[Rfam]
RNA sequence: CGCAGAGUAGAGAAAGAAGCGUUAAGUAUCGUCUGAACGGGGAGUUGUCAGACGGGCGAAAAGUGUUUCUUGCGAUUUCUUUCUCGCAUCCCGCUGUU
Numbered sequence: 001c002g003c004a005g006a007g008u009a010g011a012g013a014a015a016g017a018a019g020c021g022u023u024a025a026g027u028a029u030c031g032u033c034u035g036a037a038c039g040g041g042g043a044g045u046u047g048u049c050a051g052a053c054g055g056g057c058g059a060a061a062a063g064u065g066u067u068u069c070u071u072g073c074g075a076u077u078u079c080u081u082u083c084u085c086g087c088a089u090c091c092c093g094c095u096g097u098u
Stems, first nucleotide, its partner, number of pairs: 002097004010085010020074003026057002029055008040091003044087001061071003